[Rfam]
RNA sequence: UGUGGUGGUGACAACUGGCGAGGGUGGAAUUAACCACCGGGGAGUGACCGCGAACCUCAUUGCGCGCCGCCCGCCUGGGUGCGAGGU
Numbered sequence: 001u002g003u004g005g006u007g008g009u010g011a012c013a014a015c016u017g018g019c020g021a022g023g024g025u026g027g028a029a030u031u032a033a034c035c036a037c038c039g040g041g042g043a044g045u046g047a048c049c050g051c052g053a054a055c056c057u058c059a060u061u062g063c064g065c066g067c068c069g070c071c072c073g074c075c076u077g078g079g080u081g082c083g084a085g086g087u
Stems, first nucleotide, its partner, number of pairs: 003053001005051005011045002015041002017075004024037004064082005
ZMP/ZTP riboswitch aptamer (pfl RNA motif): an 87-nucleotide RNA from Jonesia denitrificans. It scores 49 bits against the family's covariance model. The source organism's lineage runs through Bacteria, Actinomycetota, Actinomycetes, Jonesia and Jonesia denitrificans. Its family is annotated with one-carbon metabolic process and regulation of purine nucleotide biosynthetic process in the Gene Ontology.